[Rfam]
RNA sequence: CGCGCAGACCGCCUUAUCGCCGUCCGUCUUAGGCGGAAGGAGGAAAGUCCGAGCACCAUAGGGAAGCAUAGCGGCUAACGGCCGUCGUUCAGGAUUUUAUUCUGAAAAGGACCAGUGCAACAGAAAGAAUGUACAGAUAAUGCUGUAGUGAAACCAGGUAAACUCUAUGCGGUGAAAUGUCACGUAAACUAGUGUCCCGUUUAUUCGGGUAAGGGUUCCCACCCAAUGCUGGAGGGUAGGCAGAUGGAACAAUCGAGUAAUUGAUUGUCUAGAUAAAUGAUAAGGGUUCGCUUAGGCGAAUACAGAACUCGGCUUAUAGGUCUGCUUUUUUU
Numbered sequence: 001c002g003c004g005c006a007g008a009c010c011g012c013c014u015u016a017u018c019g020c021c022g023u024c025c026g027u028c029u030u031a032g033g034c035g036g037a038a039g040g041a042g043g044a045a046a047g048u049c050c051g052a053g054c055a056c057c058a059u060a061g062g063g064a065a066g067c068a069u070a071g072c073g074g075c076u077a078a079c080g081g082c083c084g085u086c087g088u089u090c091a092g093g094a095u096u097u098u099a100u101u102c103u104g105a106a107a108a109g110g111a112c113c114a115g116u117g118c119a120a121c122a123g124a125a126a127g128a129a130u131g132u133a134c135a136g137a138u139a140a141u142g143c144u145g146u147a148g149u150g151a152a153a154c155c156a157g158g159u160a161a162a163c164u165c166u167a168u169g170c171g172g173u174g175a176a177a178u179g180u181c182a183c184g185u186a187a188a189c190u191a192g193u194g195u196c197c198c199g200u201u202u203a204u205u206c207g208g209g210u211a212a213g214g215g216u217u218c219c220c221a222c223c224c225a226a227u228g229c230u231g232g233a234g235g236g237u238a239g240g241c242a243g244a245u246g247g248a249a250c251a252a253u254c255g256a257g258u259a260a261u262u263g264a265u266u267g268u269c270u271a272g273a274u275a276a277a278u279g280a281u282a283a284g285g286g287u288u289c290g291c292u293u294a295g296g297c298g299a300a301u302a303c304a305g306a307a308c309u310c311g312g313c314u315u316a317u318a319g320g321u322c323u324g325c326u327u328u329u330u331u332u
Stems, first nucleotide, its partner, number of pairs: 002327001004325007011317001012285007020040002023037006045315003049312005054174004061220004066170005071085005086109001088106008110165002115163002117159002133146004178242004189232005213224003249268008
Annotation
Shown here is a 332-nucleotide RNA from unidentified eubacterium SCB49, a member of the family "Bacterial RNase P class A". A search with the family's covariance model found it, with a score of 171 bits.